[Rfam]
RNA sequence: GGACGGGUCCGGGCCCCUCUGACGGUCGAGGCGUCGACCGUGAUGUCGGAUUCUUUCA
Numbered sequence: 001g002g003a004c005g006g007g008u009c010c011g012g013g014c015c016c017c018u019c020u021g022a023c024g025g026u027c028g029a030g031g032c033g034u035c036g037a038c039c040g041u042g043a044u045g046u047c048g049g050a051u052u053c054u055u056u057c058a
Stems, first nucleotide, its partner, number of pairs: 006052007022041008